The record is a 35-nucleotide RNA sequence from Tangfeifania diversioriginum, which matches "DUF805b RNA" in Rfam. Taxonomically the source falls in Tangfeifania (Bacteria, Bacteroidota, Marinilabiliales, Prolixibacteraceae).

[Rfam]
RNA sequence: AAGGAAGAAGCUGAAAAUCCUGAAAAGAGUAGGUC
Numbered sequence: 001a002a003g004g005a006a007g008a009a010g011c012u013g014a015a016a017a018u019c020c021u022g023a024a025a026a027g028a029g030u031a032g033g034u035c
Base pairs, nucleotide, nucleotide: 002021003020004019005018010034011033012032